[Rfam]
RNA: mir-574 microRNA precursor family
Organism: Myotis lucifugus
RNA sequence: AGGCCCAAAGAGAAAGGAAGGGCCUGAUCCGCAGCCUCUGUGGCAGCUGUUGAUCAGCCAUUGCCUCUCUCUCUUUCUCUC
Numbered sequence: 001a002g003g004c005c006c007a008a009a010g011a012g013a014a015a016g017g018a019a020g021g022g023c024c025u026g027a028u029c030c031g032c033a034g035c036c037u038c039u040g041u042g043g044c045a046g047c048u049g050u051u052g053a054u055c056a057g058c059c060a061u062u063g064c065c066u067c068u069c070u071c072u073c074u075u076u077c078u079c080u081c
Base pairs, nucleotide, nucleotide: 009072010071011070012069013068015066016065017064019062020061022059024057025056026055027054028053029052032049033048034047035046